This 138-nucleotide RNA sequence from Gopherus evgoodei belongs to the Rfam family "Small nucleolar RNA SNORA49". Rfam classes the family as an H/ACA-box small nucleolar RNA. The family's consensus secondary structure was predicted with RNAalifold. Rfam describes the family as follows. The snoRNA ACA49 has no identified RNA target. NB genomic sequence 1-nt different from published. The organism belongs to Gopherus, within Eukaryota. A search with the family's covariance model found it, with a score of 126 bits.
RNA sequence: UUUCCUCAGCCUUACUCCAGGGGCUUUUUUGCCUGUAUAGUGCCCUGGCAUUGCCUGAGGAUAAAUUAAAAAUAUGCUCAUAUCCCUCCCCAGUAGGACUUUGCAUUUCCUUUGGGGUCUACAAUUUGAGCAAACAUU
Number, nucleotide and partner (000 for none) at each position: 001u000002u000003u061004c060005c059006u058007c057008a056009g055010c000011c053012u000013u000014a000015c000016u000017c048018c047019a046020g045021g044022g043023g041024c040025u039026u000027u037028u000029u000030u000031g000032c000033c000034u000035g000036u000037a027038u000039a025040g024041u023042g000043c022044c021045c020046u019047g018048g017049c000050a000051u000052u000053g011054c000055c009056u008057g007058a006059g005060g004061a003062u000063a000064a000065a000066u000067u000068a000069a000070a000071a000072a000073u000074a000075u132076g131077c130078u000079c128080a127081u000082a000083u000084c000085c000086c000087u000088c117089c116090c115091c114092a113093g112094u000095a111096g110097g109098a108099c000100u000101u000102u000103g000104c000105a000106u000107u000108u098109c097110c096111u095112u093113u092114g091115g090116g089117g088118u000119c000120u000121a000122c000123a000124a000125u000126u000127u080128g079129a000130g077131c076132a075133a000134a000135c000136a000137u000138u000